[Rfam]
This 183-nucleotide sequence from Sphingomonas sp. KC8 belongs to the Rfam family "Manganese Mn2+ riboswitch aptamer (yybP-ykoY)". The match comes from Rfam's covariance-model search (57 bits). The organism belongs to Sphingomonas, within Bacteria. The base pairs follow the family's consensus structure.

RNA sequence: GCGCCCGUCAUCUGGGGAGUAGCCAGCCGCCCGAACCGGGCGGGCCUUCGCGUCAACAUACUUGGUCGAGAGGCCAUGGUGCGAAGGGAGCGGGACCACCGUUCGGGCGAGACCAAUGACACCGCACCUUCGCCUUGCCGGGCGGGGGGUGUGGUGUCGUUGGAUUUUUCGCCGCCCGGCCCC
Numbered sequence: 001g002c003g004c005c006c007g008u009c010a011u012c013u014g015g016g017g018a019g020u021a022g023c024c025a026g027c028c029g030c031c032c033g034a035a036c037c038g039g040g041c042g043g044g045c046c047u048u049c050g051c052g053u054c055a056a057c058a059u060a061c062u063u064g065g066u067c068g069a070g071a072g073g074c075c076a077u078g079g080u081g082c083g084a085a086g087g088g089a090g091c092g093g094g095a096c097c098a099c100c101g102u103u104c105g106g107g108c109g110a111g112a113c114c115a116a117u118g119a120c121a122c123c124g125c126a127c128c129u130u131c132g133c134c135u136u137g138c139c140g141g142g143c144g145g146g147g148g149g150u151g152u153g154g155u156g157u158c159g160u161u162g163g164a165u166u167u168u169u170c171g172c173c174g175c176c177c178g179g180c181c182c183c
Stems, first nucleotide, its partner, number of pairs: 027043002046086010063076005093183001